[Rfam]
RNA sequence: GCCUCGGUAGCUCAACUGGAUAGAGCAGAUCCGUCCUAAGGAUAAGGUUGCAGGUUCGACUCCUGCCCGGGGUA
Numbered sequence: 001g002c003c004u005c006g007g008u009a010g011c012u013c014a015a016c017u018g019g020a021u022a023g024a025g026c027a028g029a030u031c032c033g034u035c036c037u038a039a040g041g042a043u044a045a046g047g048u049u050g051c052a053g054g055u056u057c058g059a060c061u062c063c064u065g066c067c068c069g070g071g072g073u074a
Base pairs, nucleotide, nucleotide: 001073002072003071004070005069006068007067010026011025012024013023029043030042031041032040050066051065052064053063054062